[Rfam]
Nucleotides: 208
Base pairs, nucleotide, nucleotide: 001063002062006059007058008057009055010054011053012052015050017049019042027035029033072146073145074144075143076142077141078140082126083125084124085123093113094112095111096110155165156164157163178203179202180201181200182199183198184197185196186195187194188193
Number, partner (000 for none) and nucleotide at each position: 001063g002062u003000a004000g005000a006059u007058g008057c009055u010054c011053a012052u013000u014000c015050c016000a017049c018000c019042u020000u021000c022000u023000a024000u025000g026000c027035u028000c029033g030000c031000u032000u033029c034000g035027g036000c037000u038000u039000c040000a041000u042019a043000a044000u045000c046000c047000u048000g049017g050015g051000a052012a053011u054010g055009a056000c057008g058007c059006a060000g061000a062002g063001c064000c065000a066000a067000u068000u069000u070000g071000c072146g073145g074144u075143g076142c077141c078140u079000a080000u081000a082126g083125u084124c085123c086000a087000a088000u089000u090000c091000c092000a093113g094112a095111u096110g097000a098000a099000g100000g101000c102000g103000u104000u105000a106000c107000c108000u109000c110096c111095a112094u113093c114000g115000g116000a117000c118000u119000u120000u121000c122000c123085g124084g125083a126082c127000a128000u129000a130000a131000c132000g133000u134000u135000g136000a137000g138000u139000g140078a141077g142076g143075c144074a145073c146072c147000a148000u149000g150000c151000c152000g153000u154000u155165g156164u157163c158000u159000u160000a161000c162000a163157g164156a165155c166000c167000u168000g169000a170000u171000u172000u173000u174000u175000u176000u177000c178203a179202a180201c181200g182199c183198u184197u185196a186195c187194c188193g189000u190000u191000a192000u193188c194187g195186g196185u197184a198183a199182g200181c201180g202179u203178u204000u205000u206000u207000u208000u
Rfam assigns this 208-nucleotide sequence from Brenneria goodwinii to the family "GlmZ RNA activator of glmS mRNA". The family's consensus secondary structure is taken from published work. On this family, see Argaman et al., Curr Biol 2001: "Novel small RNA-encoding genes in the intergenic regions of Escherichia coli". Clan: Glm clan. The match comes from Rfam's covariance-model search (183 bits). Lineage of the source: Bacteria > Pseudomonadati > Pseudomonadota > Enterobacterales > Brenneria. The family's RNA type in Rfam is small RNA. This RNA was discovered in E. coli during a large scale screen. The sraJ gene was expressed in early logarithmic phase, but its level decreased with cell growth. Specific cleavage products of this RNA were found. Identified in Yersinia pseudotuberculosis as Ysr248/153/sR016.